[Rfam]
RNA sequence: CGACGUCUUCGGGGCGGGGUGCGAUUCCCCACCGGCGGUAAGGCCAGCGAUGGCCAAGCCCGCGAGCGCCUUUGCAAUCCAUCGCAAAGGGUCAGCAGAUCUGGUGUGACUCCAGAGCCGACGGUAUAGUCCGGAUGAAAGAAGAUGUGC
Numbered sequence: 001c002g003a004c005g006u007c008u009u010c011g012g013g014g015c016g017g018g019g020u021g022c023g024a025u026u027c028c029c030c031a032c033c034g035g036c037g038g039u040a041a042g043g044c045c046a047g048c049g050a051u052g053g054c055c056a057a058g059c060c061c062g063c064g065a066g067c068g069c070c071u072u073u074g075c076a077a078u079c080c081a082u083c084g085c086a087a088a089g090g091g092u093c094a095g096c097a098g099a100u101c102u103g104g105u106g107u108g109a110c111u112c113c114a115g116a117g118c119c120g121a122c123g124g125u126a127u128a129g130u131c132c133g134g135a136u137g138a139a140a141g142a143a144g145a146u147g148u149g150c
Stems, first nucleotide, its partner, number of pairs: 003148008017029003031130002033120002035063004058118002066096002100116005122133003
The record is a 150-nucleotide RNA from Rugamonas rivuli, which matches "FMN riboswitch aptamer (RFN element)" in Rfam.
It scores 118 bits against the family's covariance model.
The organism belongs to Rugamonas, within Bacteria.
Its family is annotated with FMN binding in the Gene Ontology.